A member of the RNA family "Streptomyces sRNA 4677" from Streptomyces chromofuscus, 226 nucleotides long. NCBI's taxonomy places the organism under Bacteria, Actinomycetota, Kitasatosporales, Streptomycetaceae, Streptomyces. The base pairs follow the family's consensus structure. Rfam describes the family as follows. Located in the intergenic region between anti-sigma factor SCO4677 gene and a putative regulatory protein gene SCO4676. scr4677 expression requires the SCO4677 activity and scr4677 sRNA itself seem to affect the levels of the SCO4676-associated transcripts. A search with the family's covariance model found it, with a score of 60 bits. It is annotated as a small RNA.
RNA sequence: GGGCCCGGCAGGCCGCUGUCCUCCCCAAAGAACCGGGGGAAAGAACCACCCGCCCACCCACCCUCCCCGGCCGCACGGCCCGCGUCACCCGUCCGAGUGACCGGCUUGCAGGCGCGGGACACGGGCGGUUACGUUCGCCGCGACAACCGCACACAGACAUCGGCCCUCGGCCGGGACGGGCAUCCCGAACGAGGGCCUGACCGAUCUGGAAGUGAACCCCUUCCCG
Numbered sequence: 001g002g003g004c005c006c007g008g009c010a011g012g013c014c015g016c017u018g019u020c021c022u023c024c025c026c027a028a029a030g031a032a033c034c035g036g037g038g039g040a041a042a043g044a045a046c047c048a049c050c051c052g053c054c055c056a057c058c059c060a061c062c063c064u065c066c067c068c069g070g071c072c073g074c075a076c077g078g079c080c081c082g083c084g085u086c087a088c089c090c091g092u093c094c095g096a097g098u099g100a101c102c103g104g105c106u107u108g109c110a111g112g113c114g115c116g117g118g119a120c121a122c123g124g125g126c127g128g129u130u131a132c133g134u135u136c137g138c139c140g141c142g143a144c145a146a147c148c149g150c151a152c153a154c155a156g157a158c159a160u161c162g163g164c165c166c167u168c169g170g171c172c173g174g175g176a177c178g179g180g181c182a183u184c185c186c187g188a189a190c191g192a193g194g195g196c197c198u199g200a201c202c203g204a205u206c207u208g209g210a211a212g213u214g215a216a217c218c219c220c221u222u223c224c225c226g
Stems, first nucleotide, its partner, number of pairs: 007205001008202001015071004085100004090095001114138004162197005168191002173186004208224005